RNA sequence: CCCGGUGACGGGUAUUCUCGGGCCGAUGACACUGCCCCCACUGUUAUUGCUUGAGAAUACGCGUGGCCGAG
Number, nucleotide and partner (000 for none) at each position: 001c071002c000003c069004g068005g067006u000007g000008a064009c063010g062011g000012g060013u059014a058015u057016u056017c055018u054019c053020g052021g051022g050023c049024c000025g048026a047027u046028g045029a044030c043031a042032c000033u000034g000035c000036c000037c000038c000039c000040a000041c000042u031043g030044u029045u028046a027047u026048u025049g023050c022051u021052u020053g019054a018055g017056a016057a015058u014059a013060c012061g000062c010063g009064u008065g000066g000067c005068c004069g003070a000071g001
RNA: mir-137 microRNA precursor family